[Rfam]
RNA sequence: UAGAGUGCUCCGCCAUGAGAACUGAAUUCCAUAGAUGGUGACAUUUGUAUGCUUCAUCUAUGGGCUCAGUUCUUUUGGCUCGGUACUGUCCA
Numbered sequence: 001u002a003g004a005g006u007g008c009u010c011c012g013c014c015a016u017g018a019g020a021a022c023u024g025a026a027u028u029c030c031a032u033a034g035a036u037g038g039u040g041a042c043a044u045u046u047g048u049a050u051g052c053u054u055c056a057u058c059u060a061u062g063g064g065c066u067c068a069g070u071u072c073u074u075u076u077g078g079c080u081c082g083g084u085a086c087u088g089u090c091c092a
Stems, first nucleotide, its partner, number of pairs: 008083002012079002018073008033059004